[Rfam]
RNA sequence: ACAUCGUGGUUUGGACACUUGAUAAGCAUCUCUUUAAAUCUCCCCCAUGCUUCAUACAAAUGCUCUCCAUUGUGUUGAUGAAAAUUUAUGAUUUCUUCACCCAAUUG
Numbered sequence: 001a002c003a004u005c006g007u008g009g010u011u012u013g014g015a016c017a018c019u020u021g022a023u024a025a026g027c028a029u030c031u032c033u034u035u036a037a038a039u040c041u042c043c044c045c046c047a048u049g050c051u052u053c054a055u056a057c058a059a060a061u062g063c064u065c066u067c068c069a070u071u072g073u074g075u076u077g078a079u080g081a082a083a084a085u086u087u088a089u090g091a092u093u094u095c096u097u098c099a100c101c102c103a104a105u106u107g
Stems, first nucleotide, its partner, number of pairs: 003105002006101001057074002060071001
Shown here is a 107-nucleotide RNA sequence from Capsicum baccatum, a member of the family "Plant small nucleolar RNA R71". NCBI's taxonomy places the organism under Eukaryota, Tracheophyta, eudicotyledons, Pentapetalae, Capsicum. The family's consensus secondary structure was predicted with PFOLD. For this family Rfam cites "Plant snoRNAs: functional evolution and new modes of gene expression" (Brown et al., Trends Plant Sci, 2003).